This 114-nucleotide RNA sequence from Caenorhabditis elegans belongs to the Rfam family "Potassium channel RNA editing signal". The family's RNA type in Rfam is cis-regulatory element. Rfam 15.1 lists 14,095 matches to the family in 1,000 species. It scores 56 bits against the family's covariance model. Pairs were carried over by alignment from the consensus structure, which is taken from published work. For this family Rfam cites "Control of human potassium channel inactivation by editing of a small mRNA hairpin" (Bhalla et al., Nat Struct Mol Biol, 2004). Taxonomically the source falls in Caenorhabditis (Eukaryota, Eumetazoa, Rhabditomorpha, Rhabditoidea). From the family's description: This family represents a group of sequences related to the human potassium channel Kv1.1 hairpin element which directs the efficient modification of an adenosine to inosine by an adenosine deaminase acting on RNA (ADAR). The ADAR modification causes an isoleucine/valine recoding event which lies in the ion-conducting pore of the potassium channel. It is thought that this editing event targets the process of fast inactivation and allows a more rapid recovery from inactivation at negative potentials.
RNA sequence: UUCAGAUAUGGAGAUUUGGUUCCGCUGAGUCCAUUUGGAAAAGUUGUGGGCGGUAUGUGCGCAAUGAUUGGUGUCUUGACAUUGGCACUUCCAGUUCCUAUUAUUGUAGGUUUU
Number, nucleotide and partner (000 for none) at each position: 001u000002u000003c000004a113005g112006a000007u108008a107009u106010g105011g104012a000013g102014a101015u100016u000017u000018g097019g096020u000021u094022c000023c000024g000025c000026u000027g000028a000029g000030u000031c000032c000033a000034u000035u000036u000037g077038g076039a000040a074041a000042a000043g000044u000045u000046g000047u000048g000049g000050g062051c061052g000053g000054u000055a000056u000057g000058u000059g000060c000061g051062c050063a000064a000065u000066g000067a000068u000069u000070g000071g000072u000073g000074u040075c000076u038077u037078g000079a000080c000081a000082u000083u000084g000085g000086c000087a000088c000089u000090u000091c000092c000093a000094g021095u000096u019097c018098c000099u000100a015101u014102u013103a000104u011105u010106g009107u008108a007109g000110g000111u000112u005113u004114u000